[Rfam]
RNA sequence: GGUUAUCGGGUCUGUGGUUGAAAGUCGAUGCCAGUCGCAGGCGAAACGAUCCACAUAAGCGGGCGCAAAGCUGCCCGUGAGCAUGGUGCGGCUUAGAUGUAAGUCCGUCCGGGGCGAUUCCCCGAGAGGAGCAGUAGUGGGCGGCGUAAUUGCUUAGUAGCGAACCUUCCAGGCGGCGAGUGUGGGGGCAAAGGCCAGGUCAGCCGAAGCC
Numbered sequence: 001g002g003u004u005a006u007c008g009g010g011u012c013u014g015u016g017g018u019u020g021a022a023a024g025u026c027g028a029u030g031c032c033a034g035u036c037g038c039a040g041g042c043g044a045a046a047c048g049a050u051c052c053a054c055a056u057a058a059g060c061g062g063g064c065g066c067a068a069a070g071c072u073g074c075c076c077g078u079g080a081g082c083a084u085g086g087u088g089c090g091g092c093u094u095a096g097a098u099g100u101a102a103g104u105c106c107g108u109c110c111g112g113g114g115c116g117a118u119u120c121c122c123c124g125a126g127a128g129g130a131g132c133a134g135u136a137g138u139g140g141g142c143g144g145c146g147u148a149a150u151u152g153c154u155u156a157g158u159a160g161c162g163a164a165c166c167u168u169c170c171a172g173g174c175g176g177c178g179a180g181u182g183u184g185g186g187g188g189c190a191a192a193g194g195c196c197a198g199g200u201c202a203g204c205c206g207a208a209g210c211c
Stems, first nucleotide, its partner, number of pairs: 001211004006207004012203003015197005028183003031041001033093007050086002058078001061075002084190001105176005110124005128169004137161002143154003
Rfam assigns this 211-nucleotide RNA sequence to the family "raiA RNA".